[Rfam]
RNA sequence: AUCAGGCCAGCGGGAGAGCAAGAGGAUCAAAUAUCCGAUUGCGCCGAAGGAGCAACCGCCUCGGAAACUCUCAGGCACAAAGGACCGCCCGGCCAGC
Numbered sequence: 001a002u003c004a005g006g007c008c009a010g011c012g013g014g015a016g017a018g019c020a021a022g023a024g025g026a027u028c029a030a031a032u033a034u035c036c037g038a039u040u041g042c043g044c045c046g047a048a049g050g051a052g053c054a055a056c057c058g059c060c061u062c063g064g065a066a067a068c069u070c071u072c073a074g075g076c077a078c079a080a081a082g083g084a085c086c087g088c089c090c091g092g093c094c095a096g097c
Stems, first nucleotide, its partner, number of pairs: 007091001010088004019041003043076003046072002050070003056063001